[Rfam]
RNA sequence: GCCAAGGCUCAUCAGGAGCUUGGCACCUUCGGCGCCGGCGGGCCGCCGGCGCUCUUGUGGUUACGUUGCUCAACGGAGGAUGUAGCUAUGAGGA
Numbered sequence: 001g002c003c004a005a006g007g008c009u010c011a012u013c014a015g016g017a018g019c020u021u022g023g024c025a026c027c028u029u030c031g032g033c034g035c036c037g038g039c040g041g042g043c044c045g046c047c048g049g050c051g052c053u054c055u056u057g058u059g060g061u062u063a064c065g066u067u068g069c070u071c072a073a074c075g076g077a078g079g080a081u082g083u084a085g086c087u088a089u090g091a092g093g094a
Base pairs, nucleotide, nucleotide: 001024002023003022004021005020006019008018009017031053032052033051034050035049036048037047038046039045040044054092055091056090057089058088059087061085062084063083064082065081066080067079069078070077071076
The family of this 94-nucleotide sequence from Microvirga mediterraneensis is "Repression of heat shock gene expression (ROSE) element". From the family's description: This family represents a 5' UTR cis-regulatory element found in heat shock mRNAs and is known as the ROSE (repression of heat shock gene expression) element. The ROSE element is a negative regulator of heat shock gene expression. The secondary structure is thought to be regulated by temperature. This regulation blocks access to the ribosome binding site under normal conditions. The base pairs follow the family's consensus structure, which is taken from published work. A search with the family's covariance model found it, with a score of 58 bits.